[Rfam]
RNA sequence: UGGAGAGAAGCUCAGUGCUGAGGCUCCAUGCAGAGUACUGUAGCUGCUCUUCAGCUAGCCUUGGGGAUGGUCUGAGUUGAGAGCUACAUGCUGCUUUCACAAAGCAUUGUUUGAACAAAGCAAGUAAGUUCCCAUCAACCUUGGUCAGCUUGCAACUUGAAAGAACAAGAAAUAGUUAGCACUCAGAAUGCAAUACCUCUACGGAUUCAAAGUUGUCAAGUUUGGAAUUGGCUCAUAGUUGGCCAGUUGAGCUCAAUGCCUGAGAGGAGAGUGCAGACUUUUCCAACUCAAUUUAGACUACUCUAUCUA
Numbered sequence: 001u002g003g004a005g006a007g008a009a010g011c012u013c014a015g016u017g018c019u020g021a022g023g024c025u026c027c028a029u030g031c032a033g034a035g036u037a038c039u040g041u042a043g044c045u046g047c048u049c050u051u052c053a054g055c056u057a058g059c060c061u062u063g064g065g066g067a068u069g070g071u072c073u074g075a076g077u078u079g080a081g082a083g084c085u086a087c088a089u090g091c092u093g094c095u096u097u098c099a100c101a102a103a104g105c106a107u108u109g110u111u112u113g114a115a116c117a118a119a120g121c122a123a124g125u126a127a128g129u130u131c132c133c134a135u136c137a138a139c140c141u142u143g144g145u146c147a148g149c150u151u152g153c154a155a156c157u158u159g160a161a162a163g164a165a166c167a168a169g170a171a172a173u174a175g176u177u178a179g180c181a182c183u184c185a186g187a188a189u190g191c192a193a194u195a196c197c198u199c200u201a202c203g204g205a206u207u208c209a210a211a212g213u214u215g216u217c218a219a220g221u222u223u224g225g226a227a228u229u230g231g232c233u234c235a236u237a238g239u240u241g242g243c244c245a246g247u248u249g250a251g252c253u254c255a256a257u258g259c260c261u262g263a264g265a266g267g268a269g270a271g272u273g274c275a276g277a278c279u280u281u282u283c284c285a286a287c288u289c290a291a292u293u294u295a296g297a298c299u300a301c302u303c304u305a306u307c308u309a
Base pairs, nucleotide, nucleotide: 006306008304011264012263013262014261015260019063020062021061022060023059033049034048035047036046037045038043072296073295074294075293076292082240083239084238085237092106093105094104095103096102107123108122109121110120111119112118124236125235127233128232129231130230144221145220266283267282268281269280270279271278